[Rfam]
RNA: Small nucleolar RNA SNORD53/SNORD92
Organism: Xenopus tropicalis
RNA sequence: AUACUGUGAUGAUGCCCAACAUUGUGGUUUCGACUCACUGAUUUCGGUGAAGACCCCCUUACCUUGGCUGUGUCUGAGUAU
Numbered sequence: 001a002u003a004c005u006g007u008g009a010u011g012a013u014g015c016c017c018a019a020c021a022u023u024g025u026g027g028u029u030u031c032g033a034c035u036c037a038c039u040g041a042u043u044u045c046g047g048u049g050a051a052g053a054c055c056c057c058c059u060u061a062c063c064u065u066g067g068c069u070g071u072g073u074c075u076g077a078g079u080a081u
Stems, first nucleotide, its partner, number of pairs: 001081004